Source information: Shown here is a 192-nucleotide RNA sequence from Suillus discolor, a member of the family "U2 spliceosomal RNA". By type it is a spliceosomal small nuclear RNA. The family is grouped with related families in Rfam's "U2 clan". NCBI's taxonomy places the organism under Eukaryota, Fungi, Agaricomycetes, Boletales, Suillus. The base pairs follow the family's consensus structure, which is taken from published work. Rfam links the family to the GO terms U2 snRNP, mRNA branch site recognition and pre-mRNA branch point binding. The match comes from Rfam's covariance-model search (119 bits).
RNA sequence: UUACCACUCUGGCCUUUUGGCUUAGAUCAAGUGUAGUAUCUGUUCUUAAUAGUUUAACCACUAUUAUGAGGGCACCGCCCUCAUUCUUUGGUUAUCAAAUUUUUGCCGCCCUUGUUCCUUCGAGCUCUGCUUGCAACUCGGAGGACAUGAUGACCUUGCUACUGCACUACUGGCCUGCGUCGUCGGGGGUUU
Number, nucleotide and partner (000 for none) at each position: 001u000002u000003a000004c000005c000006a000007c000008u026009c025010u024011g022012g021013c020014c019015u000016u000017u000018u000019g014020g013021c012022u011023u000024a010025g009026a008027u000028c000029a000030a000031g000032u000033g000034u000035a000036g000037u000038a000039u000040c000041u000042g000043u000044u000045c000046u000047u066048a065049a064050u063051a062052g061053u000054u000055u000056a000057a000058c000059c000060a000061c052062u051063a050064u049065u048066a047067u083068g082069a081070g080071g079072g078073c077074a000075c000076c000077g073078c072079c071080c070081u069082c068083a067084u000085u000086c000087u000088u000089u000090g000091g000092u000093u000094a000095u000096c000097a000098a000099a000100u000101u000102u000103u000104u000105g000106c000107c000108g000109c000110c000111c000112u000113u000114g000115u000116u145117c144118c143119u142120u141121c140122g139123a138124g000125c000126u000127c000128u135129g134130c000131u000132u000133g000134c129135a128136a000137c000138u123139c122140g121141g120142a119143g118144g117145a116146c000147a000148u185149g184150a183151u182152g181153a180154c000155c177156u000157u000158g174159c173160u172161a000162c000163u000164g000165c000166a000167c000168u000169a000170c000171u000172g160173g159174c158175c000176u000177g155178c000179g000180u153181c152182g151183u150184c149185g148186g000187g000188g000189g000190u000191u000192u000